[Rfam]
RNA sequence: UUGGCAAUGAUGAGCUGCGCAGGGGUACGGACCCCGGCUAAUAAUGGGUGCCGGAUGCUCCCUCUGACUCCUCGACCCUUGCAUGUGGUAGGGGCUUUUGAGGAUAGAGUCAUUGGAUGCAUGAAAUAUUGCCUGAACUGAGCCAA
Numbered sequence: 001u002u003g004g005c006a007a008u009g010a011u012g013a014g015c016u017g018c019g020c021a022g023g024g025g026u027a028c029g030g031a032c033c034c035c036g037g038c039u040a041a042u043a044a045u046g047g048g049u050g051c052c053g054g055a056u057g058c059u060c061c062c063u064c065u066g067a068c069u070c071c072u073c074g075a076c077c078c079u080u081g082c083a084u085g086u087g088g089u090a091g092g093g094g095c096u097u098u099u100g101a102g103g104a105u106a107g108a109g110u111c112a113u114u115g116g117a118u119g120c121a122u123g124a125a126a127u128a129u130u131g132c133c134u135g136a137a138c139u140g141a142g143c144c145a146a
Base pairs, nucleotide, nucleotide: 001146002145003144004143005142